A member of the RNA family "UnaL2 LINE 3' element" from Coregonus sp. 'balchen', 54 nucleotides long.
It scores 60 bits against the family's covariance model.
NCBI's taxonomy places the organism under Eukaryota, Bilateria, Craniata, Euteleostomi, Coregonus.
The base pairs follow the family's consensus structure, which is taken from published work.
Rfam's curators write: The eel long interspersed element (LINE) UnaL2 and its partner short interspersed element (SINE) share a conserved 3' tail containing a stem-loop that is critical for their retrotransposition.
[Rfam]
RNA sequence: AUGAAAAAAAAAAGUAAGUCGCUCUGGAUAAGAGCGUCUGCUAAAUGACUAAAA
Numbered sequence: 001a002u003g004a005a006a007a008a009a010a011a012a013a014g015u016a017a018g019u020c021g022c023u024c025u026g027g028a029u030a031a032g033a034g035c036g037u038c039u040g041c042u043a044a045a046u047g048a049c050u051a052a053a054a
Stems, first nucleotide, its partner, number of pairs: 014041003020036006